[Rfam]
RNA sequence: UGAGCGGUGCUAAAGUGCUUAUAGUGCAGGUAGUGUUGUCCGUAUCUACUGCAGCGUGAGCACUUCAAGUCCUUCUCA
Numbered sequence: 001u002g003a004g005c006g007g008u009g010c011u012a013a014a015g016u017g018c019u020u021a022u023a024g025u026g027c028a029g030g031u032a033g034u035g036u037u038g039u040c041c042g043u044a045u046c047u048a049c050u051g052c053a054g055c056g057u058g059a060g061c062a063c064u065u066c067a068a069g070u071c072c073u074u075c076u077c078a
Stems, first nucleotide, its partner, number of pairs: 004075001006073002009070003013065010025053003029050005
mir-17 microRNA precursor family: a 78-nucleotide RNA sequence from Gadus morhua. Pairs were carried over by alignment from the consensus structure, which was predicted with RNAalifold. This family represents the microRNA (miRNA) precursor mir-17, family, which includes mir-20, mir-91, and mir-103. miRNAs are transcribed as ~70nt precursors (modelled here) and subsequently processed by the Dicer enzyme to give a ~22nt product. In this case the mature sequence comes from the 3' arm of the precursor. The extents of the hairpin precursors are not generally known and are estimated based on hairpin prediction. The literature on the family includes a 2025 paper in J Mol Biol by Liu et al., "Structural Features Within Precursor microRNA-20a Regulate Dicer-TRBP Processing".